The record is a 123-nucleotide RNA sequence from Vibrio ostreae, which matches "Phenylalanine leader peptide" in Rfam. Gene Ontology term of the family: cellular amino acid metabolic process.
[Rfam]
RNA sequence: GACUCUGCACUCACUGUUCUUUUUUGACUUCUUUUUUCUCCAAAACUAGUUGGAGGCACGCUCGUUCGCGAAAGAUAAGUCAAAAACGAACAGAAAGCCUCCCAUACGGGGGGCUUUUUUUAU
Numbered sequence: 001g002a003c004u005c006u007g008c009a010c011u012c013a014c015u016g017u018u019c020u021u022u023u024u025u026g027a028c029u030u031c032u033u034u035u036u037u038c039u040c041c042a043a044a045a046c047u048a049g050u051u052g053g054a055g056g057c058a059c060g061c062u063c064g065u066u067c068g069c070g071a072a073a074g075a076u077a078a079g080u081c082a083a084a085a086a087c088g089a090a091c092a093g094a095a096a097g098c099c100u101c102c103c104a105u106a107c108g109g110g111g112g113g114c115u116u117u118u119u120u121u122a123u
Base pairs, nucleotide, nucleotide: 016091017090018089019088021086022085023084024083025082026081027080028079029078030077032075033074034073036071037070039054040053041052042051055067056066094117095116096115097114098113099112100111101110102109103108
Dot-bracket structure: ...............((((.((((((((((.(((.((.((((........))))((.........))..)).))).)))))))))).))))..((((((((((....))))))))))......
A reference for the family is Zurawski et al. (1978), "Nucleotide sequence of the leader region of the phenylalanine operon of Escherichia coli", Proc Natl Acad Sci U S A. The family's consensus secondary structure was predicted with CMfinder. The match comes from Rfam's covariance-model search (82 bits).